[Rfam]
RNA: RAGATH-28 RNA
RNA sequence: CCGGGGUUGAUACGUCCCCCGGUGCCGCACAGGAUUGCAUGAUACCAGCCACCUGAUUUCAACUCGAAAUCCGGAAUGGCGGAGC
Dot-bracket structure: ((((((..........)))))).............................((.(((((.......))))).))...........